[Rfam]
Nucleotides: 102
Base pairs, nucleotide, nucleotide: 019087020086021085022084023083024082025081030048031047032046033045034044035043058078059077060076061075062074063073064072
Number, partner (000 for none) and nucleotide at each position: 001000c002000u003000a004000g005000a006000a007000u008000a009000g010000u011000c012000g013000a014000a015000u016000a017000u018000g019087c020086c021085u022084c023083a024082u025081a026000u027000a028000a029000a030048u031047g032046u033045a034044a035043g036000a037000a038000u039000a040000g041000g042000g043035c044034u045033u046032a047031c048030a049000a050000g051000u052000a053000u054000c055000u056000a057000c058078c059077a060076g061075g062074u063073a064072g065000c066000c067000g068000u069000a070000a071000a072064c073063u074062a075061c076060c077059u078058g079000a080000c081025u082024a083023u084022g085021a086020g087019g088000g089000a090000a091000g092000u093000g094000u095000a096000c097000c098000u099000a100000g101000g102000g